[Rfam]
RNA: T-box leader
Organism: Oceanobacillus limi
RNA sequence: AAAAGUACGAUGAUGGAGAAAGUAUAAAGUAGAUUUAACUGUAAGAGCGAGUCAGGGUGGGUGGAAGCCUGGUAUAGUACUGCUUUAGAAAAUCACUCCGGAGUAUCCAUUCGAACGGAUUCCUAGUAGAAAUGGACGGAUUAUUCACGUUACGAAUAUCAAGUGAAUUUAAAAUGGUUGAUUUUAAAUUUAUAAGGGUGGUACCGCGAGCCUUCUCGUCCCUUUU
Numbered sequence: 001a002a003a004a005g006u007a008c009g010a011u012g013a014u015g016g017a018g019a020a021a022g023u024a025u026a027a028a029g030u031a032g033a034u035u036u037a038a039c040u041g042u043a044a045g046a047g048c049g050a051g052u053c054a055g056g057g058u059g060g061g062u063g064g065a066a067g068c069c070u071g072g073u074a075u076a077g078u079a080c081u082g083c084u085u086u087a088g089a090a091a092a093u094c095a096c097u098c099c100g101g102a103g104u105a106u107c108c109a110u111u112c113g114a115a116c117g118g119a120u121u122c123c124u125a126g127u128a129g130a131a132a133u134g135g136a137c138g139g140a141u142u143a144u145u146c147a148c149g150u151u152a153c154g155a156a157u158a159u160c161a162a163g164u165g166a167a168u169u170u171a172a173a174a175u176g177g178u179u180g181a182u183u184u185u186a187a188a189u190u191u192a193u194a195a196g197g198g199u200g201g202u203a204c205c206g207c208g209a210g211c212c213u214u215c216u217c218g219u220c221c222c223u224u225u226u
Stems, first nucleotide, its partner, number of pairs: 007104002015099004025087006040076003051073006107135004111130002137149002166190010195223004206219005
Dot-bracket structure: ......((......((((......((((((.........(((........((((((...........))))))))).....))))))........))))...))..((((((................)).)))).((.........))................((((((((((.....))))))))))....((((.......(((((....)))))))))...